[Rfam]
Overview:
rpsB sRNA: a 103-nucleotide sequence from Chelativorans petroleitrophicus. The family's consensus secondary structure is taken from published work. It scores 55 bits against the family's covariance model. NCBI's taxonomy places the organism under Bacteria, Alphaproteobacteria, Hyphomicrobiales, Phyllobacteriaceae, Chelativorans. Rfam 15.1 lists 245 matches to the family in 245 species. The literature on the family includes a 2009 paper in BMC Genomics by Meyer et al., "Identification of candidate structured RNAs in the marine organism 'Candidatus Pelagibacter ubique'".
RNA sequence: CACACGCGGACCAUGGGUUCCAGUCCGGGAGACAUCCGGGCUGACGCCUCCGGUGGCGCAAUGCGCCUGACGGUCCGCGGAGGUUCAACCGGAAAGGAAAAUA
Dot-bracket structure: (.(.(((((((...((.........(((.......)))........))......(((((...))))).....)))))))).).....................